[Rfam]
RNA: Actinobacteria sRNA Ms_IGR-5
Organism: Flexivirga caeni
RNA sequence: ACACGAGAAAGGAGGUGGUCCACUAGUGAAUUCCCAGCGGACGCGUGAGGUGGUUGCGCGCUAGCGCAGCCUUCGUAUUUCGUCGCCGGCCACCUCCGUGUGACCGACGAGACGGACGUUCGGUAGCUACUCCAACGCAGCCACCGCAGCCCGUGGGUGCGCGAUCUCGUCCAUCGCGCGACCGGCUUCGCCGGAGCCCACGGGUUGUUCGCGU
Numbered sequence: 001a002c003a004c005g006a007g008a009a010a011g012g013a014g015g016u017g018g019u020c021c022a023c024u025a026g027u028g029a030a031u032u033c034c035c036a037g038c039g040g041a042c043g044c045g046u047g048a049g050g051u052g053g054u055u056g057c058g059c060g061c062u063a064g065c066g067c068a069g070c071c072u073u074c075g076u077a078u079u080u081c082g083u084c085g086c087c088g089g090c091c092a093c094c095u096c097c098g099u100g101u102g103a104c105c106g107a108c109g110a111g112a113c114g115g116a117c118g119u120u121c122g123g124u125a126g127c128u129a130c131u132c133c134a135a136c137g138c139a140g141c142c143a144c145c146g147c148a149g150c151c152c153g154u155g156g157g158u159g160c161g162c163g164a165u166c167u168c169g170u171c172c173a174u175c176g177c178g179c180g181a182c183c184g185g186c187u188u189c190g191c192c193g194g195a196g197c198c199c200a201c202g203g204g205u206u207g208u209u210c211g212c213g214u
Stems, first nucleotide, its partner, number of pairs: 015057005060127004065122001068120003072116005146208013160178006